[Rfam]
RNA sequence: ACUUUUAAAACGCUUAAUUCUUUUUUAAAAAAGAAGCGGGGGAACCAUUUUUUGGGGUGAAUCACUAUCCCCAAUCAGGGGAAAGUGUAGGGUUAUCUCUUUCGACCCGAAUCCGACAGCUAACCUCGUAAGCGUUGAAAGGGAGGUCGA
Numbered sequence: 001a002c003u004u005u006u007a008a009a010a011c012g013c014u015u016a017a018u019u020c021u022u023u024u025u026u027a028a029a030a031a032a033g034a035a036g037c038g039g040g041g042g043a044a045c046c047a048u049u050u051u052u053u054g055g056g057g058u059g060a061a062u063c064a065c066u067a068u069c070c071c072c073a074a075u076c077a078g079g080g081g082a083a084a085g086u087g088u089a090g091g092g093u094u095a096u097c098u099c100u101u102u103c104g105a106c107c108c109g110a111a112u113c114c115g116a117c118a119g120c121u122a123a124c125c126u127c128g129u130a131a132g133c134g135u136u137g138a139a140a141g142g143g144a145g146g147u148c149g150a
Base pairs, nucleotide, nucleotide: 011134012133013132014131018035019034020033021032022031023030024029036129037128038127039126040125041124046054047053055114056113057112063087064086065085066084090108091107092106093105
This 150-nucleotide RNA sequence from Koleobacter methoxysyntrophicus belongs to the Rfam family "c-di-AMP riboswitch aptamer (ydaO/yuaA leader)". Taxonomically the source falls in Koleobacter (Bacteria, Clostridia, Koleobacterales, Koleobacteraceae).